[Rfam]
The family of this 67-nucleotide sequence from Ascaris suum is "mir-34 microRNA precursor family". Clan: mir-34 clan. Taxonomically the source falls in Ascaris (Eukaryota, Ecdysozoa, Nematoda, Chromadorea). On this family, see Lim et al., Science 2003: "Vertebrate microRNA genes". About the family: Human mir-34a was discovered computationally and later experimentally verified.
RNA sequence: ACCGGCUGGCAGUGUGGUUAGCUGGUUGUCAGAUGUGAGACAACGGCUAUCACCACUGCCGUCCUGG
Numbered sequence: 001a002c003c004g005g006c007u008g009g010c011a012g013u014g015u016g017g018u019u020a021g022c023u024g025g026u027u028g029u030c031a032g033a034u035g036u037g038a039g040a041c042a043a044c045g046g047c048u049a050u051c052a053c054c055a056c057u058g059c060c061g062u063c064c065u066g067g
Base pairs, nucleotide, nucleotide: 002066004064005063008060009059011057012056013055014054017051019049020048021047023045025044026043027042028041029040030039